[Rfam]
Shown here is a 98-nucleotide sequence from Kribbella voronezhensis, a member of the family "Glycine riboswitch aptamer". Gene Ontology term of the family: glycine biosynthetic process. The organism belongs to Kribbella, within Bacteria.
RNA sequence: ACACAGCAUUCGGGAGAGUCUCGGGCGGAACCACGCCCGGGCGCCGAAGGGGCAAUUCCUCCCCGGAACCUCUCAGGCCCAUGGACCGAGUGCCUUAG
Dot-bracket structure: .....((((((((......((((((((......)))))))).(((((..(((...((.......))...))))).))).......)))))))).....
Numbered sequence: 001a002c003a004c005a006g007c008a009u010u011c012g013g014g015a016g017a018g019u020c021u022c023g024g025g026c027g028g029a030a031c032c033a034c035g036c037c038c039g040g041g042c043g044c045c046g047a048a049g050g051g052g053c054a055a056u057u058c059c060u061c062c063c064c065g066g067a068a069c070c071u072c073u074c075a076g077g078c079c080c081a082u083g084g085a086c087c088g089a090g091u092g093c094c095u096u097a098g
Stems, first nucleotide, its partner, number of pairs: 006093008020041008043078003046074002050072003056066002